[Rfam]
RNA sequence: AGGAUGGUACGAAUCGACCAUACCGUUAUGUUAACCAAAGAUGGAGGCAAUUUAAAUGAAGGCCCGACUGCUUGUACCUAAAGAGGACUGAGACGGAAGG
Number, nucleotide and partner (000 for none) at each position: 001a000002g024003g023004a021005u020006g019007g018008u017009a000010c016011g000012a000013a000014u000015c000016g010017a008018c007019c006020a005021u004022a000023c003024c002025g000026u000027u000028a000029u000030g000031u000032u000033a000034a000035c000036c000037a000038a000039a000040g000041a000042u000043g000044g000045a000046g000047g000048c000049a000050a000051u000052u000053u000054a000055a000056a000057u000058g000059a000060a000061g000062g000063c000064c000065c000066g000067a000068c096069u095070g094071c092072u091073u090074g089075u000076a000077c000078c086079u085080a000081a000082a000083g000084a000085g079086g078087a000088c000089u074090g073091a072092g071093a000094c070095g069096g068097a000098a000099g000100g000

The family of this 100-nucleotide sequence from Desulfosporosinus orientis is "pan motif".
Pairs were carried over by alignment from the consensus structure, which is taken from published work.
Lineage of the source: Bacteria > Bacillati > Eubacteriales > Desulfosporosinus > Desulfosporosinus orientis.